[Rfam]
RNA sequence: GUGGAAGGGGCAUGCAGAGGAGCACGAACGAGGUGUGGUUGGCCCCUCGUUAGCUCUCCUGUGCCUGCCUCUUCCAUU
Dot-bracket structure: ((((((((((((.(((.(((((.(..............................)))))).))).)))))))))))).
Numbered sequence: 001g002u003g004g005a006a007g008g009g010g011c012a013u014g015c016a017g018a019g020g021a022g023c024a025c026g027a028a029c030g031a032g033g034u035g036u037g038g039u040u041g042g043c044c045c046c047u048c049g050u051u052a053g054c055u056c057u058c059c060u061g062u063g064c065c066u067g068c069c070u071c072u073u074c075c076a077u078u
Stems, first nucleotide, its partner, number of pairs: 001077012014064003018060005024055001
This 78-nucleotide sequence from Zea mays belongs to the Rfam family "MIR528 microRNA precursor family".